[Rfam]
RNA sequence: GGAACCGAUUCGACGGAUCGGCAGGAGCGGGAGACCCGAGCACGACGGACCACGAUGGCGGUGGUCCUUGGGGUGAAGCCACGACUGUGGCCGGGCAUUACUUCGUCCAGCCCGAACCCGACAGGUCAUCUUUCGCAGGCGGCUGACGAAGGGCUU
Numbered sequence: 001g002g003a004a005c006c007g008a009u010u011c012g013a014c015g016g017a018u019c020g021g022c023a024g025g026a027g028c029g030g031g032a033g034a035c036c037c038g039a040g041c042a043c044g045a046c047g048g049a050c051c052a053c054g055a056u057g058g059c060g061g062u063g064g065u066c067c068u069u070g071g072g073g074u075g076a077a078g079c080c081a082c083g084a085c086u087g088u089g090g091c092c093g094g095g096c097a098u099u100a101c102u103u104c105g106u107c108c109a110g111c112c113c114g115a116a117c118c119c120g121a122c123a124g125g126u127c128a129u130c131u132u133u134c135g136c137a138g139g140c141g142g143c144u145g146a147c148g149a150a151g152g153g154c155u156u
Base pairs, nucleotide, nucleotide: 005025006024027136028135029134030133031130032129037070038069039068040067071119072118073117079090080089081088082087093113094112095111096110
RNA: c-di-AMP riboswitch aptamer (ydaO/yuaA leader)
Organism: Streptomyces morookaense